[Rfam]
RNA sequence: CGCUGGUCCCCUCGCGACGAUAAACCGCGAACCCCGUCAGGCCCGGAAGGGAGCAGCGGUAGCGGUGGAUUCGGGCGCCGGGGUGUGGCUGGCGUCC
Numbered sequence: 001c002g003c004u005g006g007u008c009c010c011c012u013c014g015c016g017a018c019g020a021u022a023a024a025c026c027g028c029g030a031a032c033c034c035c036g037u038c039a040g041g042c043c044c045g046g047a048a049g050g051g052a053g054c055a056g057c058g059g060u061a062g063c064g065g066u067g068g069a070u071u072c073g074g075g076c077g078c079c080g081g082g083g084u085g086u087g088g089c090u091g092g093c094g095u096c097c
Base pairs, nucleotide, nucleotide: 004091005090006089007088008087010083011082012081013080014079015075018073019072020071024066025065026064027063028062034059035058036057037056042051043050044049